[Rfam]
RNA sequence: ACAAUGAUACUCCUUUACCGCCGUAGUCCGAGCGUUCAAAGCGUCGCAGGCAACGGGUAGAGCUUCGGCAGACCGCCGGAGGGGUGCAAGUCCCGUGG
Number, nucleotide and partner (000 for none) at each position: 001a000002c000003a000004a000005u000006g000007a000008u000009a000010c000011u000012c095013c062014u061015u060016u059017a058018c057019c056020g000021c000022c000023g000024u000025a000026g000027u000028c000029c000030g000031a000032g000033c000034g000035u000036u000037c000038a000039a000040a000041g000042c000043g000044u000045c000046g000047c000048a000049g000050g000051c000052a000053a000054c000055g000056g019057g018058u017059a016060g015061a014062g013063c081064u080065u079066c000067g077068g076069c075070a000071g000072a000073c000074c000075g069076c068077c067078g000079g065080a064081g063082g094083g093084g092085u000086g000087c000088a000089a000090g000091u000092c084093c083094c082095g012096u000097g000098g000
The record is a 98-nucleotide RNA from Blautia sp. An249, which matches "pemK RNA" in Rfam.